[Rfam]
RNA sequence: GGUCUGGGAUGAGAAACAGACAAAUCUGAGCACCAGAAGAUAAAAGUCUUCUAGGUAUAUGGAGUAUGCAGUUCUGAGA
Numbered sequence: 001g002g003u004c005u006g007g008g009a010u011g012a013g014a015a016a017c018a019g020a021c022a023a024a025u026c027u028g029a030g031c032a033c034c035a036g037a038a039g040a041u042a043a044a045a046g047u048c049u050u051c052u053a054g055g056u057a058u059a060u061g062g063a064g065u066a067u068g069c070a071g072u073u074c075u076g077a078g079a
Stems, first nucleotide, its partner, number of pairs: 030058001032056003038049004
RNA: Small nucleolar RNA U2-19
Organism: Odontophorus gujanensis